Shown here is a 130-nucleotide RNA sequence from Callosobruchus maculatus, a member of the family "U11 spliceosomal RNA". The organism belongs to Callosobruchus, within Eukaryota. The family's RNA type in Rfam is spliceosomal small nuclear RNA.
RNA sequence: AAAAAGGGUGCUUGUUACUGGGUAGCACACGAGUCCAUUGGGCUCGUGGGGUAUGGCAAUCAAGACAUACCCAGCACAUAAUUUUUGGACCUGUGGGGCUGUUUCUUGGCAUUGUUCCAGAGGCGCCCCC
Dot-bracket structure: .......((((((((((.....)))))(((((((((...)))))))))(((((((..........))))))))))))..................((((.(((((.((((...)..))))))))))))..
Numbered sequence: 001a002a003a004a005a006g007g008g009u010g011c012u013u014g015u016u017a018c019u020g021g022g023u024a025g026c027a028c029a030c031g032a033g034u035c036c037a038u039u040g041g042g043c044u045c046g047u048g049g050g051g052u053a054u055g056g057c058a059a060u061c062a063a064g065a066c067a068u069a070c071c072c073a074g075c076a077c078a079u080a081a082u083u084u085u086u087g088g089a090c091c092u093g094u095g096g097g098g099c100u101g102u103u104u105c106u107u108g109g110c111a112u113u114g115u116u117c118c119a120g121a122g123g124c125g126c127c128c129c130c
Stems, first nucleotide, its partner, number of pairs: 008077005013027005028048009049072007096128004101124005107119003110114001